[Rfam]
RNA sequence: UUCUGGCAGGAAUGAGGACUUCAAUUAGAUGUGCGAGACGGUACCACCGUCGCUGAUCUUACAAAAUUGAGGCAUAAUCCAUUCUUAACUGACCUGCCAGUA
Numbered sequence: 001u002u003c004u005g006g007c008a009g010g011a012a013u014g015a016g017g018a019c020u021u022c023a024a025u026u027a028g029a030u031g032u033g034c035g036a037g038a039c040g041g042u043a044c045c046a047c048c049g050u051c052g053c054u055g056a057u058c059u060u061a062c063a064a065a066a067u068u069g070a071g072g073c074a075u076a077a078u079c080c081a082u083u084c085u086u087a088a089c090u091g092a093c094c095u096g097c098c099a100g101u102a
Stems, first nucleotide, its partner, number of pairs: 001102001003100008
The record is a 102-nucleotide sequence from Ceratodon purpureus, which matches "Small nucleolar RNA Z266" in Rfam.